[Rfam]
RNA sequence: AUUCGUUCAUUUACGGCACAUUAAGCUUUCGGGUUUAUGACCAGACUGUCCUUGUUUGGACACCGAGUGGCUCCUGUCCACUCUGUUUGACGCCUCCCUGUUAUCAACUUUCAAAAGCCGCCGGUUUCCGGCGGCUCUUUUUUU
Number, nucleotide and partner (000 for none) at each position: 001a000002u000003u044004c000005g042006u000007u016008c015009a000010u000011u000012u000013a000014c000015g008016g007017c039018a038019c000020a000021u000022u037023a036024a035025g034026c033027u032028u000029u000030c000031g000032g027033g026034u025035u024036u023037a022038u018039g017040a000041c000042c005043a000044g003045a000046c000047u000048g061049u060050c059051c058052u000053u000054g000055u000056u000057u000058g051059g050060a049061c048062a000063c000064c000065g083066a082067g081068u080069g079070g078071c000072u000073c000074c000075u000076g000077u000078c070079c069080a068081c067082u066083c065084u000085g000086u000087u000088u000089g102090a101091c100092g099093c000094c000095u000096c000097c000098c000099u092100g091101u090102u089103a000104u000105c000106a000107a000108c000109u000110u000111u000112c000113a139114a138115a000116a136117g135118c134119c133120g132121c131122c130123g129124g000125u000126u000127u000128c000129c123130g122131g121132c120133g119134g118135c117136u116137c000138u114139u113140u000141u000142u000143u000144u000

This 144-nucleotide sequence from Afipia sp. 1NLS2 belongs to the Rfam family "Alphaproteobacterial sRNA BjrC1505". The source organism's lineage runs through Bacteria, Pseudomonadota, Hyphomicrobiales, Nitrobacteraceae and Afipia. On this family, see Madhugiri et al., RNA Biol 2012: "Small RNAs of the Bradyrhizobium/Rhodopseudomonas lineage and their analysis". The base pairs follow the family's consensus structure.